[Rfam]
RNA sequence: AUAAUGAUACUUCCGCUAUGGUAGCAGGUCGCUUGGAUGGGGCUGGUGAGAUUCCAAUGA
Numbered sequence: 001a002u003a004a005u006g007a008u009a010c011u012u013c014c015g016c017u018a019u020g021g022u023a024g025c026a027g028g029u030c031g032c033u034u035g036g037a038u039g040g041g042g043c044u045g046g047u048g049a050g051a052u053u054c055c056a057a058u059g060a
Stems, first nucleotide, its partner, number of pairs: 012057001013027001015025002028043003032039001044056003
Overview
A member of the RNA family "pemK RNA", 60 nucleotides long. Rfam's curators put it in the seed alignment. It is annotated as a cis-regulatory element.